[Rfam]
RNA: c-di-AMP riboswitch aptamer (ydaO/yuaA leader)
RNA sequence: GAGUUCAGUCAGCCUAGUUUUGUAGUGAAAUACAAAAGCGGGGAAACCAAUUUUGGGGCUUAUUUCUACGGAAAAUAGAAAUGGACAUCUCUCAGUCCUAGCCCGUCAGCUAACCUCGUCGGCAUUGAGGGGAGAUUGA
Number, nucleotide and partner (000 for none) at each position: 001g000002a000003g000004u000005u000006c000007a000008g000009u000010c000011a000012g123013c122014c121015u000016a000017g000018u037019u036020u035021u034022g033023u032024a031025g000026u000027g000028a000029a000030a000031u024032a023033c022034a021035a020036a019037a018038g119039c118040g117041g116042g115043g114044a000045a000046a000047c000048c055049a054050a000051u000052u000053u000054u049055g048056g104057g103058g102059c000060u000061u000062a000063u000064u080065u079066c078067u077068a000069c000070g000071g000072a000073a000074a000075a000076u000077a067078g066079a065080a064081a000082u000083g098084g097085a096086c095087a000088u000089c000090u000091c000092u000093c000094a000095g086096u085097c084098c083099u000100a000101g000102c058103c057104c056105g000106u000107c000108a000109g000110c000111u000112a000113a000114c043115c042116u041117c040118g039119u038120c000121g014122g013123c012124a000125u000126u000127g000128a000129g000130g000131g000132g000133a000134g000135a000136u000137u000138g000139a000